[Rfam]
RNA sequence: GAGGAGGAGGAGGAGGAGGAGGAGGAGAAGGAGGAGAAGGCCAAGGACCUUCUAGUCCUCCUCCUCCUCCUCCUCCUCCUUG
Numbered sequence: 001g002a003g004g005a006g007g008a009g010g011a012g013g014a015g016g017a018g019g020a021g022g023a024g025g026a027g028a029a030g031g032a033g034g035a036g037a038a039g040g041c042c043a044a045g046g047a048c049c050u051u052c053u054a055g056u057c058c059u060c061c062u063c064c065u066c067c068u069c070c071u072c073c074u075c076c077u078c079c080u081u082g
Base pairs, nucleotide, nucleotide: 001078002077003076004075005074006073010072011071013069015067016066017065018064019063020062021061022060023059024058026056035053036052037051038050039049040048041046
Shown here is an 82-nucleotide RNA from Hordeum vulgare, a member of the family "mir-877 microRNA precursor family". NCBI's taxonomy places the organism under Eukaryota, Streptophytina, Tracheophyta, commelinids, Hordeum vulgare. Gene Ontology terms of the family: miRNA-mediated post-transcriptional gene silencing and RISC complex.